Background:
The family of this 73-nucleotide sequence from Carassius auratus is "mir-21 microRNA precursor family". It scores 85 bits against the family's covariance model.
RNA sequence: UGUCAGAUAGCUUAUCAGACUGGUGUUGGCUGUUACAUUCGUCCGGCGACAACAGUCUGUAGGCUGUCUGACA
Dot-bracket structure: .......((((((((..(((((.(((((.(..............).))))).))))).)))))))).......

Rfam 15.1 lists 777 matches to the family in 646 species. Pairs were carried over by alignment from the consensus structure, which was predicted with RNAalifold.